[Rfam]
RNA sequence: UCUAGCUCCUCGGUCCUGACUCCCAGCCGUCCGCCCUGGCGCACCUUCCCCGGUGCCAGGUCCAGGACGGGUGGGGAUCAGGGCCCAGGAUCCGAGUCCG
Dot-bracket structure: .........(.(((((.((.(((((.(((((((.((((((((..........)))))))).)..)))))).))))).)).))))).).............
This 100-nucleotide sequence from Frigoribacterium sp. PhB160 belongs to the Rfam family "mraW RNA".
Rfam classes the family as a cis-regulatory element.
The organism belongs to Frigoribacterium, within Bacteria.